[Rfam]
Rfam assigns this 76-nucleotide RNA sequence from Rhizobium sp. LC145 to the family "ybhL leader". It scores 70 bits against the family's covariance model. This family is a putative regulatory RNA structure that is found upstream of an uncharacterized membrane protein in alpha-proteobacteria. Taxonomically the source falls in Rhizobium (Bacteria, Pseudomonadati, Alphaproteobacteria, Hyphomicrobiales). Its family is annotated with regulation of gene expression in the Gene Ontology.
RNA sequence: CAGGCUUGCUGGAGCUCCGCAGCGGCGCCUGGGUCAACGAAGGGGGCCCGACACCGUGAACAAUUCCGGAGCUUGA
Numbered sequence: 001c002a003g004g005c006u007u008g009c010u011g012g013a014g015c016u017c018c019g020c021a022g023c024g025g026c027g028c029c030u031g032g033g034u035c036a037a038c039g040a041a042g043g044g045g046g047c048c049c050g051a052c053a054c055c056g057u058g059a060a061c062a063a064u065u066c067c068g069g070a071g072c073u074u075g076a
Stems, first nucleotide, its partner, number of pairs: 012074008023056003030050004035046001